The family of this 139-nucleotide RNA sequence from Zizania palustris is "Small nucleolar RNA F1/F2/snoR5a". NCBI's taxonomy places the organism under Eukaryota, Magnoliopsida, Liliopsida, Poaceae, Zizania. From the family's description: This family contains F1, F2 and snoR5a sequences, all of which are members of the the H/ACA class of snoRNA that guide the sites of modification of uridines to pseudouridines.

[Rfam]
RNA sequence: UCAUGCCAUUUGGUAUCCGACACACAAUCGUUUCUCUGAUUCCGUGUCUCGAAAAAUGGCAGAAAACAAGAGGAAACGGUUCUUGCGACACUGGUUGCUAUUCAAUGAGCUUCUAGUUACUAUAACACCGUUUACAUGC
Number, nucleotide and partner (000 for none) at each position: 001u000002c000003a000004u061005g060006c059007c058008a057009u056010u000011u000012g000013g000014u000015a000016u000017c000018c000019g048020a047021c046022a045023c044024a000025c000026a041027a040028u039029c038030g037031u000032u000033u000034c000035u000036c000037u030038g029039a028040u027041u026042c000043c000044g023045u022046g021047u020048c019049u000050c000051g000052a000053a000054a000055a000056a009057u008058g007059g006060c005061a004062g000063a000064a000065a000066a000067c000068a000069a000070g000071a000072g000073g000074a000075a132076a131077c130078g129079g128080u000081u000082c000083u000084u000085g000086c000087g000088a000089c000090a117091c116092u115093g114094g113095u000096u000097g110098c109099u108100a000101u000102u000103c000104a000105a000106u000107g000108a099109g098110c097111u000112u000113c094114u093115a092116g091117u090118u000119a000120c000121u000122a000123u000124a000125a000126c000127a000128c079129c078130g077131u076132u075133u000134a000135c000136a000137u000138g000139c000
The family's consensus secondary structure was predicted with PFOLD. Rfam classes the family as an H/ACA-box small nucleolar RNA.